[Rfam]
RNA sequence: GCUACGCAAGGGCAGAACCGCUGAAAGGCGGUGACGCAAAGCCUCCGGUCCGAACGCGCGAGGGCGCAGGAUAGCGGGGUUGCCGGU
Numbered sequence: 001g002c003u004a005c006g007c008a009a010g011g012g013c014a015g016a017a018c019c020g021c022u023g024a025a026a027g028g029c030g031g032u033g034a035c036g037c038a039a040a041g042c043c044u045c046c047g048g049u050c051c052g053a054a055c056g057c058g059c060g061a062g063g064g065c066g067c068a069g070g071a072u073a074g075c076g077g078g079g080u081u082g083c084c085g086g087u
Stems, first nucleotide, its partner, number of pairs: 012037002017032006040081004045077003048072003055066003
RNA: c-di-GMP-I riboswitch aptamer